[Rfam]
RNA sequence: GUGGCUGUAAUGAAGGUCUGCACUGAAAGCGGUGUGUCUGCCGGUGUGGUCCGGAUGUCCUGGUCGU
Numbered sequence: 001g002u003g004g005c006u007g008u009a010a011u012g013a014a015g016g017u018c019u020g021c022a023c024u025g026a027a028a029g030c031g032g033u034g035u036g037u038c039u040g041c042c043g044g045u046g047u048g049g050u051c052c053g054g055a056u057g058u059c060c061u062g063g064u065c066g067u
Base pairs, nucleotide, nucleotide: 001067002066003065004064005063015052016051018049019048020047021046022045023044024043030040031039032038
Dot-bracket structure: (((((.........((.(((((((.....(((.....)))..))))))).))..........)))))
Selenocysteine insertion sequence 1: a 67-nucleotide RNA sequence from Hemibagrus wyckioides.
The match comes from Rfam's covariance-model search (35 bits).
Rfam's curators write: The incorporation of selenocysteine into a protein sequence is directed by an in-frame UGA codon (usually a stop codon) within the coding region of the mRNA. Selenoprotein mRNAs contain a conserved secondary structure in the 3' UTR that is required for the distinction of UGA stop from UGA selenocysteine.